Shown here is an 86-nucleotide RNA sequence from Panicum virgatum, a member of the family "Small nucleolar RNA Z102/R77". A search with the family's covariance model found it, with a score of 96 bits. Taxonomically the source falls in Panicum sect. Hiantes (Eukaryota, Viridiplantae, Panicoideae, Panicinae). The base pairs follow the family's consensus structure, which was predicted with PFOLD. Rfam links the family to the GO terms RNA processing and nucleolus.

RNA sequence: AGAUGAAAUGAUGACGAUAUUGUUUCCCUAUUGGUUUGAUUAGCCGCCAUGAUGGCUCAAACUGUAUUAGCUCUAUCUGAUCAUCU
Number, nucleotide and partner (000 for none) at each position: 001a000002g085003a084004u083005g082006a000007a000008a000009u000010g000011a000012u000013g000014a000015c000016g000017a000018u000019a000020u000021u000022g000023u000024u000025u000026c000027c000028c000029u000030a000031u000032u000033g000034g000035u000036u000037u000038g058039a000040u000041u000042a057043g056044c055045c054046g000047c000048c000049a000050u000051g000052a000053u000054g045055g044056c043057u042058c038059a000060a000061a000062c000063u000064g000065u000066a000067u000068u000069a000070g000071c000072u000073c000074u000075a000076u000077c000078u000079g000080a000081u000082c005083a004084u003085c002086u000